[Rfam]
RNA sequence: UCCGCCGGCGGAGGUCGCGGUGACCGCGACGGUGCGCCGGUCGACGGCGCUGCUGGGCGGCGCCGCCAGCUGGGCGGUGAAAGAGGGCGGGCCCCAGGUGGAGGGCGGGACGGUGUGGUUCCGACCGGCGGC
Numbered sequence: 001u002c003c004g005c006c007g008g009c010g011g012a013g014g015u016c017g018c019g020g021u022g023a024c025c026g027c028g029a030c031g032g033u034g035c036g037c038c039g040g041u042c043g044a045c046g047g048c049g050c051u052g053c054u055g056g057g058c059g060g061c062g063c064c065g066c067c068a069g070c071u072g073g074g075c076g077g078u079g080a081a082a083g084a085g086g087g088c089g090g091g092c093c094c095c096a097g098g099u100g101g102a103g104g105g106c107g108g109g110a111c112g113g114u115g116u117g118g119u120u121c122c123g124a125c126c127g128g129c130g131g132c
Stems, first nucleotide, its partner, number of pairs: 004129005
About this RNA:
A member of the RNA family "Small nucleolar RNA Z206" from Panicum virgatum, 132 nucleotides long. The family's RNA type in Rfam is C/D-box small nucleolar RNA. On this family, see Chen et al., Nucleic Acids Res 2003: "The high diversity of snoRNAs in plants: identification and comparative study of 120 snoRNA genes from Oryza sativa". Gene Ontology terms of the family: RNA processing and nucleolus.